[Rfam]
RNA: mir-544 microRNA precursor family
Organism: Myotis myotis
RNA sequence: ACCACCUGGGGAUUUUGUGAAAAUGCAGACUCUGAUUGAGCAGCUGUGGGUGGCGCCUAAGAGUCUGCAUUAUUAACAAGAUCCCAGGUGAUGUUAC
Numbered sequence: 001a002c003c004a005c006c007u008g009g010g011g012a013u014u015u016u017g018u019g020a021a022a023a024u025g026c027a028g029a030c031u032c033u034g035a036u037u038g039a040g041c042a043g044c045u046g047u048g049g050g051u052g053g054c055g056c057c058u059a060a061g062a063g064u065c066u067g068c069a070u071u072a073u074u075a076a077c078a079a080g081a082u083c084c085c086a087g088g089u090g091a092u093g094u095u096a097c
Base pairs, nucleotide, nucleotide: 003090004089005088009084010083011082014080015079016078017077018076020074022071023070025068026067027066028065029064031062032061033060